[Rfam]
RNA sequence: CGGCGAUGUCUUCUUGCCAAUAUCAAUGAAGGCACUCGAUCAUGCUGUGGGUUGGAUCAACCUUAGACGCAAGUCGUCGAUAGUGUGAUGUGAGGGUGGGUUAGAUGCCCA
Numbered sequence: 001c002g003g004c005g006a007u008g009u010c011u012u013c014u015u016g017c018c019a020a021u022a023u024c025a026a027u028g029a030a031g032g033c034a035c036u037c038g039a040u041c042a043u044g045c046u047g048u049g050g051g052u053u054g055g056a057u058c059a060a061c062c063u064u065a066g067a068c069g070c071a072a073g074u075c076g077u078c079g080a081u082a083g084u085g086u087g088a089u090g091u092g093a094g095g096g097u098g099g100g101u102u103a104g105a106u107g108c109c110c111a
Base pairs, nucleotide, nucleotide: 002018003017004016007034008033009032010031011030012029013028035094036093037092038091039089040088041087042086043085044084045083046082049063050062051061052060053059054058066078067077068076069075097111098110099109100108101107
The family of this 111-nucleotide RNA from Robertmurraya siralis is "epsC RNA".
The organism belongs to Robertmurraya, within Bacteria.